[Rfam]
RNA sequence: CUUAACUGUACAACGGAGGAUGGGAAUGAAGGAUCCAUGUUUCCCGAAACCAUCCCGUCAACACUCCUGCAUGCGUUAAGGCGGACAGGUCUUAGGGUAUGGAGCACAGGUAGAUUAGGCAGAACGAAGGCUGAAGCCAGAUCUAAGGUAUGCCAACGGAUAUGCCUCACGGCUGAAAA
Numbered sequence: 001c002u003u004a005a006c007u008g009u010a011c012a013a014c015g016g017a018g019g020a021u022g023g024g025a026a027u028g029a030a031g032g033a034u035c036c037a038u039g040u041u042u043c044c045c046g047a048a049a050c051c052a053u054c055c056c057g058u059c060a061a062c063a064c065u066c067c068u069g070c071a072u073g074c075g076u077u078a079a080g081g082c083g084g085a086c087a088g089g090u091c092u093u094a095g096g097g098u099a100u101g102g103a104g105c106a107c108a109g110g111u112a113g114a115u116u117a118g119g120c121a122g123a124a125c126g127a128a129g130g131c132u133g134a135a136g137c138c139a140g141a142u143c144u145a146a147g148g149u150a151u152g153c154c155a156a157c158g159g160a161u162a163u164g165c166c167u168c169a170c171g172g173c174u175g176a177a178a179a
Stems, first nucleotide, its partner, number of pairs: 018055006031045002056171003066110004070101005076095007117167005125158002129154002131140003144150002
A member of the RNA family "Group II catalytic intron D1-D4-5" from Halobacillus karajensis, 179 nucleotides long. Rfam describes the family as follows. Group II introns are found in rRNA, tRNA and mRNA of organelles in fungi, plants and protists, and also in mRNA in bacteria. The match comes from Rfam's covariance-model search (81 bits). Gene Ontology term of the family: Group II intron splicing. The base pairs follow the family's consensus structure. For this family Rfam cites "Group II introns: structure and catalytic versatility of large natural ribozymes" (Lehmann and Schmidt, Crit Rev Biochem Mol Biol, 2003).